[Rfam]
This 125-nucleotide sequence from Serratia ficaria belongs to the Rfam family "RtT RNA". Rfam describes the family as follows. This family represents a bacterial cis-regulatory element known as RtT RNA. The exact function of RtT is unknown although it is thought that it may be involved in changing the cellular response in relation to amino acid starvation. It is annotated as a cis-regulatory element. The base pairs follow the family's consensus structure, which is taken from published work.

RNA sequence: AUAUUGCACGAGUCGUGUGGGUGAGACCCUGCGUUCAGGUUCGAGCAUCGCGAAGCGAUACGACAACGCGUAGCGUUGCCCGUAGGGUGAGGCCAAAGGCCGAAUCAAUCCUGCACGACCCACCA
Numbered sequence: 001a002u003a004u005u006g007c008a009c010g011a012g013u014c015g016u017g018u019g020g021g022u023g024a025g026a027c028c029c030u031g032c033g034u035u036c037a038g039g040u041u042c043g044a045g046c047a048u049c050g051c052g053a054a055g056c057g058a059u060a061c062g063a064c065a066a067c068g069c070g071u072a073g074c075g076u077u078g079c080c081c082g083u084a085g086g087g088u089g090a091g092g093c094c095a096a097a098g099g100c101c102g103a104a105u106c107a108a109u110c111c112u113g114c115a116c117g118a119c120c121c122a123c124c125a
Stems, first nucleotide, its partner, number of pairs: 015116007022108001032089002035087002040084001042082002064078006